[Rfam]
RNA: c-di-GMP-I riboswitch aptamer
RNA sequence: AUCAGCAAAGGGCAAACUUGUCGAAAGGCAAGGACGCAAAGCUAAGGGUCUACGGCUCCGCACGAGCUAUGAUCGCCUGGUUACCGGG
Numbered sequence: 001a002u003c004a005g006c007a008a009a010g011g012g013c014a015a016a017c018u019u020g021u022c023g024a025a026a027g028g029c030a031a032g033g034a035c036g037c038a039a040a041g042c043u044a045a046g047g048g049u050c051u052a053c054g055g056c057u058c059c060g061c062a063c064g065a066g067c068u069a070u071g072a073u074c075g076c077c078u079g080g081u082u083a084c085c086g087g088g
Stems, first nucleotide, its partner, number of pairs: 012037002017032006040082004045078003048073003055067004